[Rfam]
RNA: SAM riboswitch aptamer (S box leader)
Organism: Sandaracinomonas limnophila
RNA sequence: GAUUUAUAAAGAAGAAGGGAGAGACUAGGCUCGGCGAACUUCUGGCAACCAAAUGACGAAGCUAUCAUUAAGGUGCUACAUCCUACCCCAACAAAAUGUUGAGGGAAAUAUAAACC
Dot-bracket structure: (.((((((....(((((...(((..[[[[)))......)))))((((.((.((((..........))))..))))))...(]]]](((..(........)..)))..))))))).)